[Rfam]
Nucleotides: 158
Stems, first nucleotide, its partner, number of pairs: 002155013017140002020137014035122007043114003049108004054103005070087005
Number, partner (000 for none) and nucleotide at each position: 001000a002155u003154g004153u005152u006151a007150a008149g009148u010147g011146a012145u013144g014143a015000c016000a017140u018139g019000a020137c021136a022135a023134a024133u025132g026131g027130a028129g029128u030127g031126u032125c033124a034000c035122a036121u037120c038119a039118u040117c041116a042000c043114g044113c045112c046000c047000a048000a049108u050107c051106a052105c053000u054103g055102a056101c057100a058099c059000a060000u061000c062000a063000u064000u065000a066000c067000c068000a069000u070087g071086u072085c073084a074083u075000u076000g077000a078000a079000g080000g081000u082000a083074a084073u085072g086071a087070c088000a089000u090000g091000g092000c093000a094000a095000u096000g097000g098000g099058g100057u101056g102055u103054c104000u105052g106051u107050g108049a109000c110000a111000a112045g113044g114043c115000a116041u117040g118039a119038u120037g121036a122035u123000a124033u125032g126031a127030c128029a129028c130027u131026c132025u133024g134023u135022u136021u137020g138000c139018c140017a141000c142000a143014u144013c145012a146011u147010c148009a149008c150007u151006u152005a153004a154003c155002a156000a157000a158000a

Shown here is a 158-nucleotide sequence from Glycine max, a member of the family "MIR4371 microRNA precursor family". Clan: MIR4387 microRNA precursor clan. The match comes from Rfam's covariance-model search (145 bits).